[Rfam]
RNA sequence: ACGCGCGAAAGGAGGUGGUCCAGGAAAUGCAUGAUUCUGGGACUCGCGAGGUGGCUGUCCGCUAGUCGCCGUCAACGCCUCGGAGCCGCCUCCUGGCGGCGCGCACGGUCGCGACGGUGACCGGCGAUUACCAGGCAGACACCCGAUCCCCGGACCGAUGGACCGUCCCGUCCAUCUCCCGCCACCCGGCGGGAAGGUCCGGGGAUCGUUCCUU
Numbered sequence: 001a002c003g004c005g006c007g008a009a010a011g012g013a014g015g016u017g018g019u020c021c022a023g024g025a026a027a028u029g030c031a032u033g034a035u036u037c038u039g040g041g042a043c044u045c046g047c048g049a050g051g052u053g054g055c056u057g058u059c060c061g062c063u064a065g066u067c068g069c070c071g072u073c074a075a076c077g078c079c080u081c082g083g084a085g086c087c088g089c090c091u092c093c094u095g096g097c098g099g100c101g102c103g104c105a106c107g108g109u110c111g112c113g114a115c116g117g118u119g120a121c122c123g124g125c126g127a128u129u130a131c132c133a134g135g136c137a138g139a140c141a142c143c144c145g146a147u148c149c150c151c152g153g154a155c156c157g158a159u160g161g162a163c164c165g166u167c168c169c170g171u172c173c174a175u176c177u178c179c180c181g182c183c184a185c186c187c188g189g190c191g192g193g194a195a196g197g198u199c200c201g202g203g204g205a206u207c208g209u210u211c212c213u214u
Stems, first nucleotide, its partner, number of pairs: 014059006060126004065121002068118004073113001144208013157176006

A member of the RNA family "Actinobacteria sRNA Ms_IGR-5" from Actinomadura macrotermitis, 214 nucleotides long. Lineage of the source: Bacteria > Bacillati > Streptosporangiales > Thermomonosporaceae > Actinomadura. By type it is a small RNA. It scores 97 bits against the family's covariance model.